[Rfam]
RNA sequence: CGCUCAUCCAGAGGGGCAGAGGGAAACGGCCCGUUGAAGCCCCGGCAACCCUCCAGUCGGUUCGUCUCGUGAUCCACCGAGGCCCCCGGCUAGGGAAGGUGCCAAAUCCGUCUCAUGGCGAAAAAUUCGCCAUUGAGAAAGAUGAGGA
Numbered sequence: 001c002g003c004u005c006a007u008c009c010a011g012a013g014g015g016g017c018a019g020a021g022g023g024a025a026a027c028g029g030c031c032c033g034u035u036g037a038a039g040c041c042c043c044g045g046c047a048a049c050c051c052u053c054c055a056g057u058c059g060g061u062u063c064g065u066c067u068c069g070u071g072a073u074c075c076a077c078c079g080a081g082g083c084c085c086c087c088g089g090c091u092a093g094g095g096a097a098g099g100u101g102c103c104a105a106a107u108c109c110g111u112c113u114c115a116u117g118g119c120g121a122a123a124a125a126u127u128c129g130c131c132a133u134u135g136a137g138a139a140a141g142a143u144g145a146g147g148a
Stems, first nucleotide, its partner, number of pairs: 003146006013043005021032003026111004044103004049099002051095003107140001112137004
The record is a 148-nucleotide sequence from Streptomyces sp. SID2131, which matches "SAM riboswitch aptamer (S box leader)" in Rfam. Lineage of the source: Bacteria > Actinomycetota > Actinomycetes > Streptomycetaceae > Streptomyces.